[Rfam]
This 520-nucleotide part of an RNA from Pterospora floridiensis belongs to the Rfam family "Eukaryotic small subunit ribosomal RNA". Rfam's curators put it in the seed alignment. A reference for the family is Yusupov et al. (2001), "Crystal structure of the ribosome at 5.5 A resolution", Science.

RNA sequence: CAGUUAAAAAGUUCGUAGUUUGACUUUGCCUGUUUAUUAGAUUCUAAAUAUUAUGUUUGGAAUCAAUUUAAGCAGAGAUUUGCAGAACAACACAACAUGCAUUGCGUGUUUGUGGAGUUUAGCAUAUUACUUUGAGUUAAUCGGCGUGUUCCACGCAGGCUUUUGUCUUGAACGAUUUACCAUAGAAUAACAAAUUUAUGAUUUUGUGUCUUUGUUUGUUCGGACACAUUAUCUAUACGAAUAAGAACGGUUGAGGGCAUUCGUAUUCAACUGCCAGAGGUGAAAUUCUUUGAUUAGUUGAGGACGAACAAUUGCGAAAGCAUCUGCCAGGGACGUUUCUGUUGAUCAAGAACGAAAGUUAGGGGAUCGAAGAUGAUUAGAUACCGUUGUAGUCCUAACCAUAAACUUUACUAUCCAAGAGUUGGAUUAGUUAUUUUAUACUCUUCCAGUACUUUUUGAGAAAUCAUAAGUCUUUGAGUUCUGGGGGGAGUAUAGUUGCAAGGCUGAAACUUAAAGGAAU
Numbered sequence: 001c002a003g004u005u006a007a008a009a010a011g012u013u014c015g016u017a018g019u020u021u022g023a024c025u026u027u028g029c030c031u032g033u034u035u036a037u038u039a040g041a042u043u044c045u046a047a048a049u050a051u052u053a054u055g056u057u058u059g060g061a062a063u064c065a066a067u068u069u070a071a072g073c074a075g076a077g078a079u080u081u082g083c084a085g086a087a088c089a090a091c092a093c094a095a096c097a098u099g100c101a102u103u104g105c106g107u108g109u110u111u112g113u114g115g116a117g118u119u120u121a122g123c124a125u126a127u128u129a130c131u132u133u134g135a136g137u138u139a140a141u142c143g144g145c146g147u148g149u150u151c152c153a154c155g156c157a158g159g160c161u162u163u164u165g166u167c168u169u170g171a172a173c174g175a176u177u178u179a180c181c182a183u184a185g186a187a188u189a190a191c192a193a194a195u196u197u198a199u200g201a202u203u204u205u206g207u208g209u210c211u212u213u214g215u216u217u218g219u220u221c222g223g224a225c226a227c228a229u230u231a232u233c234u235a236u237a238c239g240a241a242u243a244a245g246a247a248c249g250g251u252u253g254a255g256g257g258c259a260u261u262c263g264u265a266u267u268c269a270a271c272u273g274c275c276a277g278a279g280g281u282g283a284a285a286u287u288c289u290u291u292g293a294u295u296a297g298u299u300g301a302g303g304a305c306g307a308a309c310a311a312u313u314g315c316g317a318a319a320g321c322a323u324c325u326g327c328c329a330g331g332g333a334c335g336u337u338u339c340u341g342u343u344g345a346u347c348a349a350g351a352a353c354g355a356a357a358g359u360u361a362g363g364g365g366a367u368c369g370a371a372g373a374u375g376a377u378u379a380g381a382u383a384c385c386g387u388u389g390u391a392g393u394c395c396u397a398a399c400c401a402u403a404a405a406c407u408u409u410a411c412u413a414u415c416c417a418a419g420a421g422u423u424g425g426a427u428u429a430g431u432u433a434u435u436u437u438a439u440a441c442u443c444u445u446c447c448a449g450u451a452c453u454u455u456u457u458g459a460g461a462a463a464u465c466a467u468a469a470g471u472c473u474u475u476g477a478g479u480u481c482u483g484g485g486g487g488g489a490g491u492a493u494a495g496u497u498g499c500a501a502g503g504c505u506g507a508a509a510c511u512u513a514a515a516g517g518a519a520u
Base pairs, nucleotide, nucleotide: 001483002482003481009480011353012352013351014350018346019345020344244340245339246338247337248335249334251332252331256328257327258326259325262306263305266302267301268300269299270298271297272296273295277288278287279286314321315320358399359398360397361396362395363394368392372388373387374386375385410479411478412477415470417454418453419452422449423448424447425446426445429442430441431440458465459464485512486511487510494505495504496503497502

The base pairs follow the family's consensus structure, which is taken from published work. Taxonomically the source falls in Pterospora (Eukaryota, Apicomplexa, Conoidasida, Urosporidae).